[Rfam]
RNA sequence: UUCUUAUCAAGAGAAGCUGAGGGAACUGGCCCGGGGAAGCUUCAGCAACCAGCCGGGCGGCAAGGUGCUACCUCCAGCAGGCCCCAAUUGCCUGGAAGAUAAGAA
Numbered sequence: 001u002u003c004u005u006a007u008c009a010a011g012a013g014a015a016g017c018u019g020a021g022g023g024a025a026c027u028g029g030c031c032c033g034g035g036g037a038a039g040c041u042u043c044a045g046c047a048a049c050c051a052g053c054c055g056g057g058c059g060g061c062a063a064g065g066u067g068c069u070a071c072c073u074c075c076a077g078c079a080g081g082c083c084c085c086a087a088u089u090g091c092c093u094g095g096a097a098g099a100u101a102a103g104a105a
Stems, first nucleotide, its partner, number of pairs: 001105008013043005021032003026077004044069004049065002052061003073097001078094005
A member of the RNA family "SAM riboswitch aptamer (S box leader)" from Bacillus sp. OxB-1, 105 nucleotides long. The organism belongs to Bacillus, within Bacteria. Rfam describes the family as follows. The SAM riboswitch is found upstream of a number of genes which code for proteins involved in methionine or cysteine biosynthesis in Gram-positive bacteria. The SAM riboswitch acts at the level of transcription termination control. The predicted structure consists of a complex stem-loop region followed by a single stem loop terminator region. An alternative and mutually exclusive form involves bases in the 3' segment of helix 1 with those in the 5' region of helix 5 to form a structure termed the anti-terminator form. Rfam links the family to the GO term regulation of gene expression.